[Rfam]
RNA sequence: GGGUGUCCACACGUUCGUGUGGCAGGUUUUGCGAUGGUCGGGCCGCCACG
Numbered sequence: 001g002g003g004u005g006u007c008c009a010c011a012c013g014u015u016c017g018u019g020u021g022g023c024a025g026g027u028u029u030u031g032c033g034a035u036g037g038u039c040g041g042g043c044c045g046c047c048a049c050g
Stems, first nucleotide, its partner, number of pairs: 005023002008021005032050002035048004
This 50-nucleotide RNA from Massilia violaceinigra belongs to the Rfam family "nhaA-I RNA". About the family: Acidobacteria, Alphaproteobacteria, Betaproteobacteria and Gammaproteobacteria, Verrucomicrobia, cand. division NC10. The organism belongs to Massilia, within Bacteria. It is annotated as a riboswitch. The base pairs follow the family's consensus structure, which is taken from published work.